Shown here is a 59-nucleotide RNA sequence from Candidatus Schmidhempelia bombi, a member of the family "L31-Gammaproteobacteria ribosomal protein leader".
RNA sequence: CGUAUGGUGUAUGGCAUAGUAGUUGUGUUCAUAUAGCGAUACGAGUUAAACAACGAGGU
Numbered sequence: 001c002g003u004a005u006g007g008u009g010u011a012u013g014g015c016a017u018a019g020u021a022g023u024u025g026u027g028u029u030c031a032u033a034u035a036g037c038g039a040u041a042c043g044a045g046u047u048a049a050a051c052a053a054c055g056a057g058g059u
Stems, first nucleotide, its partner, number of pairs: 001043005007037002011032004015027004
For this family Rfam cites "Discovery of 20 novel ribosomal leader candidates in bacteria and archaea" (Eckert and Weinberg, BMC Microbiol, 2020). Lineage of the source: Bacteria > Pseudomonadati > Pseudomonadota > Orbaceae > Candidatus Schmidhempelia bombi. Clan: Ribosomal Protein L31 Leader clan.